Record summary: This 69-nucleotide sequence from Astyanax mexicanus belongs to the Rfam family "Small nucleolar RNA SNORD2". A search with the family's covariance model found it, with a score of 65 bits. By type it is a C/D-box small nucleolar RNA.

[Rfam]
RNA sequence: GUAUGAAAUGAUGGUACCAUCUUUCGGGACUGACACUUAAUGGAGACAAUCCUAAUUUACUGAUCAUAC
Numbered sequence: 001g002u003a004u005g006a007a008a009u010g011a012u013g014g015u016a017c018c019a020u021c022u023u024u025c026g027g028g029a030c031u032g033a034c035a036c037u038u039a040a041u042g043g044a045g046a047c048a049a050u051c052c053u054a055a056u057u058u059a060c061u062g063a064u065c066a067u068a069c
Stems, first nucleotide, its partner, number of pairs: 001069006